[Rfam]
RNA sequence: GUUCUCGGCUAGUUUUGCAUAGUUGCACCACAAGAAAACAAGAGUUGUGCAAAUCUAUGCAAAACUGACGGCGGCC
Number, nucleotide and partner (000 for none) at each position: 001g000002u000003u074004c073005u000006c071007g000008g069009c000010u067011a066012g065013u064014u063015u062016u061017g060018c059019a058020u000021a000022g000023u052024u051025g050026c049027a048028c047029c000030a045031c044032a000033a000034g000035a000036a000037a000038a000039c000040a000041a000042g000043a000044g031045u030046u000047g028048u027049g026050c025051a024052a023053a000054u000055c000056u000057a000058u019059g018060c017061a016062a015063a014064a013065c012066u011067g010068a000069c008070g000071g006072c000073g004074g003075c000076c000
This 76-nucleotide RNA sequence from Silurus meridionalis belongs to the Rfam family "mir-19 microRNA precursor family". Rfam links the family to the GO terms miRNA-mediated post-transcriptional gene silencing and RISC complex. It scores 58 bits against the family's covariance model. Rfam 15.1 lists 2,337 matches to the family in 651 species.